[Rfam]
RNA sequence: GUUUGGCAUGGUGUUCAGCACUAAGGACAGGUGUGUUUGUGUGUGGAUGGCGUUCAGCACCAAGGACAGGUGUCUUGGACA
Numbered sequence: 001g002u003u004u005g006g007c008a009u010g011g012u013g014u015u016c017a018g019c020a021c022u023a024a025g026g027a028c029a030g031g032u033g034u035g036u037u038u039g040u041g042u043g044u045g046g047a048u049g050g051c052g053u054u055c056a057g058c059a060c061c062a063a064g065g066a067c068a069g070g071u072g073u074c075u076u077g078g079a080c081a
Stems, first nucleotide, its partner, number of pairs: 001067002009062007017054003021050003025042001027040005

Source information: Rfam assigns this 81-nucleotide RNA sequence from Branchiostoma lanceolatum to the family "mir-2060 microRNA precursor family". Gene Ontology terms of the family: miRNA-mediated post-transcriptional gene silencing and RISC complex. The family's consensus secondary structure was predicted with RNAalifold. It scores 55 bits against the family's covariance model.